[Rfam]
RNA sequence: UCACUGGUAACAGUGGGGUCUAUUGGUGCGUCGAAGGGGGAACUUGGAACAUAGCGCAAGCGAACCGGAGAUGGCUACUCAGGUGGGUAACCUUGCACAGAGUGGGAAAGCCCAAAAGCUGGAUAACCUGAGAGGUUAGGACGGAUGUGUUCAAGUUCAGGCAAGCAGAC
Numbered sequence: 001u002c003a004c005u006g007g008u009a010a011c012a013g014u015g016g017g018g019u020c021u022a023u024u025g026g027u028g029c030g031u032c033g034a035a036g037g038g039g040g041a042a043c044u045u046g047g048a049a050c051a052u053a054g055c056g057c058a059a060g061c062g063a064a065c066c067g068g069a070g071a072u073g074g075c076u077a078c079u080c081a082g083g084u085g086g087g088u089a090a091c092c093u094u095g096c097a098c099a100g101a102g103u104g105g106g107a108a109a110g111c112c113c114a115a116a117a118g119c120u121g122g123a124u125a126a127c128c129u130g131a132g133a134g135g136u137u138a139g140g141a142c143g144g145a146u147g148u149g150u151u152c153a154a155g156u157u158c159a160g161g162c163a164a165g166c167a168g169a170c
Stems, first nucleotide, its partner, number of pairs: 001016006030170003037162001042156006049148004065144003074136003078132007085113004091106003